[Rfam]
RNA sequence: GUAUCGUCUAUGCGAAAGAGAGUAAUGUUUGUAACAGAAUGAAGCGAUUCGGGGAUGGUGGGAGCCCGGCAACUGAGCAAACAUGAACCGGACUUUCAAGACACUGUUCUGAAUGAAGUAGGAUCAGUCGGACUCGCCGUUAUCGAGUAAAGCUGGCUCGUUAGCGAGCAACCAGAGUGGUACCGCGGGUUAAUCUCCGUCUCUUAU
Number, nucleotide and partner (000 for none) at each position: 001g000002u000003a000004u000005c000006g000007u101008c100009u000010a000011u000012g000013c000014g000015a096016a095017a094018g093019a000020g000021a000022g000023u000024a000025a084026u083027g082028u081029u080030u079031g000032u000033a000034a000035c000036a000037g073038a000039a000040u000041g000042a000043a000044g000045c000046g000047a000048u000049u069050c068051g067052g066053g065054g000055a000056u000057g000058g000059u000060g000061g000062g000063a000064g000065c053066c052067c051068g050069g049070c000071a000072a000073c037074u000075g000076a000077g000078c000079a030080a029081a028082c027083a026084u025085g000086a000087a000088c000089c000090g000091g000092a000093c018094u017095u016096u015097c000098a000099a000100g008101a007102c000103a000104c127105u126106g125107u000108u123109c122110u121111g000112a000113a000114u000115g000116a000117a000118g000119u000120a000121g110122g109123a108124u000125c106126a105127g104128u000129c139130g138131g137132a000133c000134u000135c000136g000137c131138c130139g129140u000141u000142a000143u000144c000145g000146a000147g000148u000149a000150a000151a000152g000153c000154u000155g000156g169157c168158u167159c166160g165161u000162u000163a000164g000165c160166g159167a158168g157169c156170a000171a000172c000173c000174a204175g203176a202177g201178u000179g000180g000181u000182a000183c000184c000185g200186c199187g198188g197189g196190u000191u000192a000193a000194u000195c000196u189197c188198c187199g186200u185201c177202u176203c175204u174205u000206a000207u000
RNA: T-box leader